[Rfam]
RNA sequence: GUCGACGUAUUAUUAUAGCAUAUAAUACUUUAAGCCGCCAUUGGUAUCAGAAGAUGUAGCUGGAGUACAGGAUGACCGACCCAUAAGCUUCUGAAUAAAUCCACUUA
Numbered sequence: 001g002u003c004g005a006c007g008u009a010u011u012a013u014u015a016u017a018g019c020a021u022a023u024a025a026u027a028c029u030u031u032a033a034g035c036c037g038c039c040a041u042u043g044g045u046a047u048c049a050g051a052a053g054a055u056g057u058a059g060c061u062g063g064a065g066u067a068c069a070g071g072a073u074g075a076c077c078g079a080c081c082c083a084u085a086a087g088c089u090u091c092u093g094a095a096u097a098a099a100u101c102c103a104c105u106u107a
Stems, first nucleotide, its partner, number of pairs: 002079001007028007042103003045099001047094007061083003066078001070077002

Source information
The record is a 107-nucleotide RNA, which matches "cow-rumen-2 RNA" in Rfam. It is annotated as a small RNA. Pairs were carried over by alignment from the consensus structure, which is taken from published work.